Overview:
This 86-nucleotide RNA sequence from Smithella sp. SCADC belongs to the Rfam family "sRNA-Xcc1". NCBI's taxonomy places the organism under Bacteria, Pseudomonadati, Syntrophia, Smithellaceae, Smithella.
RNA sequence: GGCGGGUCGAUAGGGCCGAAUGUAACACCCGCAAGGGAAAUAAGCCCAGCCGACUUGGUUCGGUAGUUGAGACCCGCCGCCUCAGC
Numbered sequence: 001g002g003c004g005g006g007u008c009g010a011u012a013g014g015g016c017c018g019a020a021u022g023u024a025a026c027a028c029c030c031g032c033a034a035g036g037g038a039a040a041u042a043a044g045c046c047c048a049g050c051c052g053a054c055u056u057g058g059u060u061c062g063g064u065a066g067u068u069g070a071g072a073c074c075c076g077c078c079g080c081c082u083c084a085g086c
Stems, first nucleotide, its partner, number of pairs: 001078007013047004019041001028037003049064005
Dot-bracket structure: (((((((.....((((..(........(((....)))...)..)))).(((((......))))).......)))))))........

By type it is a small RNA. Rfam 15.1 lists 421 matches to the family in 299 species.